[Rfam]
RNA: FMN riboswitch aptamer (RFN element)
Organism: Butyrivibrio sp. ob235
RNA sequence: AUAAUUCUUCGGGGCAGGGUGUAAUUCCCGACCGGCGGUGACAGUCCGCGACUCGCGAAAGCGACUGAUUUGGUGAAAUUCCAAAACCGACAGUAAAGUCUGGAUGGUAGAAGUAAUGC
Numbered sequence: 001a002u003a004a005u006u007c008u009u010c011g012g013g014g015c016a017g018g019g020u021g022u023a024a025u026u027c028c029c030g031a032c033c034g035g036c037g038g039u040g041a042c043a044g045u046c047c048g049c050g051a052c053u054c055g056c057g058a059a060a061g062c063g064a065c066u067g068a069u070u071u072g073g074u075g076a077a078a079u080u081c082c083a084a085a086a087c088c089g090a091c092a093g094u095a096a097a098g099u100c101u102g103g104a105u106g107g108u109a110g111a112a113g114u115a116a117u118g119c
Stems, first nucleotide, its partner, number of pairs: 003117001005115001007113004017029003031099002033089002035049004044087002053064002069085005091102003